[Rfam]
RNA sequence: UGUGCUGUGAUGAGACGAGACACAUUGGUGUUCAUAGGGCAGUGGACGGGCCCAAUGGGUCUGCCGUGAGCCUAUUGAAUUCAAACGACUUCUCCUUCCACUGAGCACA
Numbered sequence: 001u002g003u004g005c006u007g008u009g010a011u012g013a014g015a016c017g018a019g020a021c022a023c024a025u026u027g028g029u030g031u032u033c034a035u036a037g038g039g040c041a042g043u044g045g046a047c048g049g050g051c052c053c054a055a056u057g058g059g060u061c062u063g064c065c066g067u068g069a070g071c072c073u074a075u076u077g078a079a080u081u082c083a084a085a086c087g088a089c090u091u092c093u094c095c096u097u098c099c100a101c102u103g104a105g106c107a108c109a
Stems, first nucleotide, its partner, number of pairs: 001109005
Small nucleolar RNA Z152/R70/R12/: a 109-nucleotide sequence from Vitis vinifera.
The base pairs follow the family's consensus structure, which was predicted with PFOLD.
The organism belongs to Vitis, within Eukaryota.
Rfam classes the family as a C/D-box small nucleolar RNA.